Notes:
A member of the RNA family "Transposase-2 RNA", 71 nucleotides long.
RNA sequence: GAAGCGCGAACCAAGCGGGCGCAGAAAAGCGCUGUAAGACUUGGAGCUGGCCUUGGCAACGAGGCCAUACA
Numbered sequence: 001g002a003a004g005c006g007c008g009a010a011c012c013a014a015g016c017g018g019g020c021g022c023a024g025a026a027a028a029g030c031g032c033u034g035u036a037a038g039a040c041u042u043g044g045a046g047c048u049g050g051c052c053u054u055g056g057c058a059a060c061g062a063g064g065c066c067a068u069a070c071a
Stems, first nucleotide, its partner, number of pairs: 011044005018033005048067008